[Rfam]
RNA sequence: GGAUAUGAGGGUAAUCUGGCUGUGAGAUCUGAUAUGCAUGGUCUGACUGAUCUGGCUAGCUUAGGCAGGUGUUUGCUUUUUCCCUUGACAUUCCAUGUGUGUUCCUCCUGAUGCUGUGUGCUUGGCUAAUGAGCCUCCCCAACAGACACGGUAUUGUUCAUUGGUCAAGGGUGUGUGGUAGCUGGGCUCCCCUGCUGGAAGCUCUAAGUAAGCUCAAGGUCCUUUGUAGAUGAAAAGUAAGGUAGUCAAGCACCCAAUACUGAAGACAUAUCCAAAUGAGAAGCUGCAUGCAGCAGUCUGCCAGUGGCUUU
Numbered sequence: 001g002g003a004u005a006u007g008a009g010g011g012u013a014a015u016c017u018g019g020c021u022g023u024g025a026g027a028u029c030u031g032a033u034a035u036g037c038a039u040g041g042u043c044u045g046a047c048u049g050a051u052c053u054g055g056c057u058a059g060c061u062u063a064g065g066c067a068g069g070u071g072u073u074u075g076c077u078u079u080u081u082c083c084c085u086u087g088a089c090a091u092u093c094c095a096u097g098u099g100u101g102u103u104c105c106u107c108c109u110g111a112u113g114c115u116g117u118g119u120g121c122u123u124g125g126c127u128a129a130u131g132a133g134c135c136u137c138c139c140c141a142a143c144a145g146a147c148a149c150g151g152u153a154u155u156g157u158u159c160a161u162u163g164g165u166c167a168a169g170g171g172u173g174u175g176u177g178g179u180a181g182c183u184g185g186g187c188u189c190c191c192c193u194g195c196u197g198g199a200a201g202c203u204c205u206a207a208g209u210a211a212g213c214u215c216a217a218g219g220u221c222c223u224u225u226g227u228a229g230a231u232g233a234a235a236a237g238u239a240a241g242g243u244a245g246u247c248a249a250g251c252a253c254c255c256a257a258u259a260c261u262g263a264a265g266a267c268a269u270a271u272c273c274a275a276a277u278g279a280g281a282a283g284c285u286g287c288a289u290g291c292a293g294c295a296g297u298c299u300g301c302c303a304g305u306g307g308c309u310u311u
Base pairs, nucleotide, nucleotide: 001094002093003092006087007086008085009084010083011082013079014078018076024073025072027070028069029068030067031066033064035058037054038053040052041051042050043049102151103150106146107145108125109124110123111122113121114120127141133138181251182250183249187245188244190242191241193239194238195237202232205229208227209226210225211224274311275310276309280302283297284296285295286294287293

Rfam assigns this 311-nucleotide RNA sequence from Aegithalos caudatus to the family "7SK RNA". The match comes from Rfam's covariance-model search (121 bits). Lineage of the source: Eukaryota > Opisthokonta > Euteleostomi > Archelosauria > Aegithalos. 7SK was discovered as an abundant small nuclear RNA in the mid-70s but a possible function has only recently been suggested. Two independent studies have found that 7SK RNA binds the CDK9/cyclin T complex (known as elongation factor P-TEFb). P-TEFb activates transcription by phosphorylating the C-terminal domain of RNA polymerase II. This process is negatively regulated by the 7SK RNP. The secondary structure of 7SK RNA shown here was proposed by Wasserman and Steitz on the basis of chemical modification and enzymatic cleavage experiments. This family contains a number of annotated pseudogenes and 7SK derived repeats. On this family, see Blencowe, Curr Biol 2002: "Transcription: surprising role for an elusive small nuclear RNA".